[Rfam]
RNA sequence: ACAACGGCUCUUUUAAGAGCCACACACUUCAUCUAAAGACACCCUU
Numbered sequence: 001a002c003a004a005c006g007g008c009u010c011u012u013u014u015a016a017g018a019g020c021c022a023c024a025c026a027c028u029u030c031a032u033c034u035a036a037a038g039a040c041a042c043c044c045u046u
Stems, first nucleotide, its partner, number of pairs: 006021006

A member of the RNA family "Histone 3' UTR stem-loop" from Sander lucioperca, 46 nucleotides long. Its family is annotated with mRNA 3'-end processing by stem-loop binding and cleavage in the Gene Ontology. The base pairs follow the family's consensus structure, which is taken from published work. A search with the family's covariance model found it, with a score of 36 bits. Lineage of the source: Eukaryota > Euteleostomi > Eupercaria > Luciopercinae > Sander. The mRNAs of metazoan histone genes lack a poly-A tail. 3' end processing occurs at a site between a highly conserved stem-loop (modelled by this family) and a purine rich region around 20 nts downstream (the histone downstream element, or HDE). The stem-loop is bound by a 31 kDa stem-loop binding protein (SLBP - also termed the histone hairpin binding protein, or HBP).